[Rfam]
c-di-AMP riboswitch aptamer (ydaO/yuaA leader): a 151-nucleotide sequence from Microcoleus sp. FACHB-1515.
RNA sequence: AUCGUCUGUCAGCCUAAUUUAGCUUUUCUUGGCAAAGCUAAAGCGGAGGAACCAUUUUGGGGGCUAACCCUUUCGAGAUCGAAACGAAAGCGGAGAGGAUCUUUCAACUCUAGCCCGUCAGCUAACUUCGUCGGCAUUGGAAGAAGACUGU
Number, nucleotide and partner (000 for none) at each position: 001a000002u000003c000004g000005u000006c000007u000008g000009u000010c000011a000012g135013c134014c133015u000016a000017a000018u042019u041020u040021a039022g038023c037024u036025u035026u034027u000028c000029u000030u000031g000032g000033c000034a026035a025036a024037g023038c022039u021040a020041a019042a018043g131044c130045g129046g128047a127048g126049g000050a000051a000052c000053c060054a000055u000056u000057u000058u000059g000060g053061g116062g115063g114064c000065u000066a000067a000068c000069c090070c000071u088072u087073u000074c000075g000076a000077g000078a000079u000080c000081g000082a000083a000084a000085c000086g000087a072088a071089a000090g069091c000092g000093g110094a109095g108096a000097g000098g000099a000100u000101c000102u000103u000104u000105c000106a000107a000108c095109u094110c093111u000112a000113g000114c063115c062116c061117g000118u000119c000120a000121g000122c000123u000124a000125a000126c048127u047128u046129c045130g044131u043132c000133g014134g013135c012136a000137u000138u000139g000140g000141a000142a000143g000144a000145a000146g000147a000148c000149u000150g000151u000
Lineage of the source: Bacteria > Cyanophyceae > Oscillatoriophycideae > Oscillatoriales > Microcoleus.